This 291-nucleotide RNA sequence from a Bathymodiolus platifrons methanotrophic gill symbiont belongs to the Rfam family "Group II catalytic intron D1-D4-6".
[Rfam]
RNA sequence: CAAGUCCUUGUCGGGCAAGGGCUAAUCACCCACUCGUAUCGAGUGUUACGCCUAUGGCGGAGUUUGGGAUUAGCGAAUACUUUUCAGUGACUGCGGUCACAACCAAGCGAACAAGAUAGGUGAAGCGUACACAGAGAAUCUUAUAGGCCAUAGGGGAUGCGUGUCCUGAAGUGCUAGUAUCGCUCCGAAAAUAAAAUAAAGUUCUGAUUGACGAGGUUUGUAACGCAAUCAAAGUCCAAGCAAAGCAACCGAUCUGAUGAGAUUGUGGCGAAUCAGCGGAGUUAUCAAGCC
Numbered sequence: 001c002a003a004g005u006c007c008u009u010g011u012c013g014g015g016c017a018a019g020g021g022c023u024a025a026u027c028a029c030c031c032a033c034u035c036g037u038a039u040c041g042a043g044u045g046u047u048a049c050g051c052c053u054a055u056g057g058c059g060g061a062g063u064u065u066g067g068g069a070u071u072a073g074c075g076a077a078u079a080c081u082u083u084u085c086a087g088u089g090a091c092u093g094c095g096g097u098c099a100c101a102a103c104c105a106a107g108c109g110a111a112c113a114a115g116a117u118a119g120g121u122g123a124a125g126c127g128u129a130c131a132c133a134g135a136g137a138a139u140c141u142u143a144u145a146g147g148c149c150a151u152a153g154g155g156g157a158u159g160c161g162u163g164u165c166c167u168g169a170a171g172u173g174c175u176a177g178u179a180u181c182g183c184u185c186c187g188a189a190a191a192u193a194a195a196a197u198a199a200a201g202u203u204c205u206g207a208u209u210g211a212c213g214a215g216g217u218u219u220g221u222a223a224c225g226c227a228a229u230c231a232a233a234g235u236c237c238a239a240g241c242a243a244a245g246c247a248a249c250c251g252a253u254c255u256g257a258u259g260a261g262a263u264u265g266u267g268g269c270g271a272a273u274c275a276g277c278g279g280a281g282u283u284a285u286c287a288a289g290c291c
Stems, first nucleotide, its partner, number of pairs: 012036004019031003023260001025258002039135002043132004047127001049122007059112001179285001182282006204276006210236003215230004241270001245266004250261001
A search with the family's covariance model found it, with a score of 78 bits. About the family: Group II introns are found in rRNA, tRNA and mRNA of organelles in fungi, plants and protists, and also in mRNA in bacteria.